[Rfam]
RNA sequence: GGGGACCUGCGGGGCCCUAUAACCUGAAAAGACGGGGCGAAUGCCCCGCAAAGCAAACGGAAGACAGUAA
Numbered sequence: 001g002g003g004g005a006c007c008u009g010c011g012g013g014g015c016c017c018u019a020u021a022a023c024c025u026g027a028a029a030a031g032a033c034g035g036g037g038c039g040a041a042u043g044c045c046c047c048g049c050a051a052a053g054c055a056a057a058c059g060g061a062a063g064a065c066a067g068u069a070a
Stems, first nucleotide, its partner, number of pairs: 001018004006014003031049001033048005
About this RNA
Rfam assigns this 70-nucleotide RNA sequence to the family "L2-Alphaproteobacteria ribosomal protein leader". It is annotated as a cis-regulatory leader. The family's consensus secondary structure is taken from published work. Rfam's curators put it in the seed alignment.